Shown here is a 269-nucleotide sequence from Thalassomonas actiniarum, a member of the family "Group II catalytic intron D1-D4-6". About the family: Group II introns are found in rRNA, tRNA and mRNA of organelles in fungi, plants and protists, and also in mRNA in bacteria. Taxonomically the source falls in Thalassomonas (Bacteria, Pseudomonadati, Pseudomonadota, Colwelliaceae). Pairs were carried over by alignment from the consensus structure. The family has 174 seed sequences and 1,617 matches in Rfam 15.1.
RNA sequence: UAAGUCCCUGUCUGGUAAGGCUUAACCAGCCACCAGUAUCGAGUGUUGCGCCUGUGGCGGAGUUUCACUGAAACGAACAAUACAGGUGAAGCGUACACAGAGAAUCAUAUAGGCCAUAGGGGCUAUCGUGGCCCUGAAGUGCUGGUAUCGCUCCGAGAAUUACCAUCUGACUGACGAGGUUUGUAACGCCACCGAAGUCCAUGCAAAGUAGCCGUUAUUCAUAGCAAACGAAAGGUGAGGCUACGGCGAGUCAGCGGGGUUAUCAAGCC
Numbered sequence: 001u002a003a004g005u006c007c008c009u010g011u012c013u014g015g016u017a018a019g020g021c022u023u024a025a026c027c028a029g030c031c032a033c034c035a036g037u038a039u040c041g042a043g044u045g046u047u048g049c050g051c052c053u054g055u056g057g058c059g060g061a062g063u064u065u066c067a068c069u070g071a072a073a074c075g076a077a078c079a080a081u082a083c084a085g086g087u088g089a090a091g092c093g094u095a096c097a098c099a100g101a102g103a104a105u106c107a108u109a110u111a112g113g114c115c116a117u118a119g120g121g122g123c124u125a126u127c128g129u130g131g132c133c134c135u136g137a138a139g140u141g142c143u144g145g146u147a148u149c150g151c152u153c154c155g156a157g158a159a160u161u162a163c164c165a166u167c168u169g170a171c172u173g174a175c176g177a178g179g180u181u182u183g184u185a186a187c188g189c190c191a192c193c194g195a196a197g198u199c200c201a202u203g204c205a206a207a208g209u210a211g212c213c214g215u216u217a218u219u220c221a222u223a224g225c226a227a228a229c230g231a232a233a234g235g236u237g238a239g240g241c242u243a244c245g246g247c248g249a250g251u252c253a254g255c256g257g258g259g260u261u262a263u264c265a266a267g268c269c
Base pairs, nucleotide, nucleotide: 012036013035014034015033019031020030021029022028039101040100043098044097045096046095047093048092049088050087051086052085053084054083055082056081059078147263150260151259152258153257154256155255167254168253169252170251171250172249173199174198175197178193179192180191204248208244209243210242211241212240213239